[Rfam]
Nucleotides: 101
Stems, first nucleotide, its partner, number of pairs: 001101008013042005021031003027075002043069004048065002051061004073093001078090005
Number, partner (000 for none) and nucleotide at each position: 001101g002100u003099c004098u005097c006096a007095u008094c009000a010000a011000g012000a013042g014041u015040a016039g017038u018000g019000g020000a021031g022030g023029g024000a025000a026000a027075g028074g029023c030022c031021c032000u033000g034000u035000g036000a037000a038017g039016c040015u041014a042013c043069a044068g045067c046066a047000a048065c049064c050000a051061u052060u053059c054058a055000u056000u057000u058054u059053g060052a061051a062000a063000a064049g065048g066046u067045g068044c069043u070000a071000a072000g073093u074028c075027c076000g077000a078090c079089g080088g081087u082086a083000a084000u085000a086082u087081g088080c089079c090078g091000a092000a093073a094008g095007a096006u097005g098004g099003g100002g101001u
This 101-nucleotide sequence from Veillonella criceti belongs to the Rfam family "SAM riboswitch aptamer (S box leader)". The organism belongs to Veillonella, within Bacteria. The family's consensus secondary structure is taken from published work.